[Rfam]
RNA sequence: AACGUCCUUAUCGAGGGUAGUAUUGAUGUGAUCAAUGAACGUUUAGUGAGGUCCGUCGUGCUAACACCCUUACUUACAGCAUCUAAACCUACUCGAGAAAUUGGGUAGGUAAUUUUUGGAAAC
Numbered sequence: 001a002a003c004g005u006c007c008u009u010a011u012c013g014a015g016g017g018u019a020g021u022a023u024u025g026a027u028g029u030g031a032u033c034a035a036u037g038a039a040c041g042u043u044u045a046g047u048g049a050g051g052u053c054c055g056u057c058g059u060g061c062u063a064a065c066a067c068c069c070u071u072a073c074u075u076a077c078a079g080c081a082u083c084u085a086a087a088c089c090u091a092c093u094c095g096a097g098a099a100a101u102u103g104g105g106u107a108g109g110u111a112a113u114u115u116u117u118g119g120a121a122a123c
Base pairs, nucleotide, nucleotide: 005019007017008016009015020061021060022059023058026056027055028054030053031052032051033050039047040046087110088109089108090107091106092105093104094103095102096101